[Rfam]
RNA: U5 spliceosomal RNA
Organism: Astyanax mexicanus
RNA sequence: AGCUCAAGUUUCUAUUCAUUCAUGUAUAAAUCUUUCGCCUUUUACUAAAGAUUUCCGUAGAGGGGAAUGUUGAUGAAUGUUGCUGAUUUUUUUGACGGCUUUGUUUUUAGCGAAGCU
Numbered sequence: 001a002g003c004u005c006a007a008g009u010u011u012c013u014a015u016u017c018a019u020u021c022a023u024g025u026a027u028a029a030a031u032c033u034u035u036c037g038c039c040u041u042u043u044a045c046u047a048a049a050g051a052u053u054u055c056c057g058u059a060g061a062g063g064g065g066a067a068u069g070u071u072g073a074u075g076a077a078u079g080u081u082g083c084u085g086a087u088u089u090u091u092u093u094g095a096c097g098g099c100u101u102u103g104u105u106u107u108u109a110g111c112g113a114a115g116c117u
Stems, first nucleotide, its partner, number of pairs: 004076003009067005015061002018058001028054008095117001098116006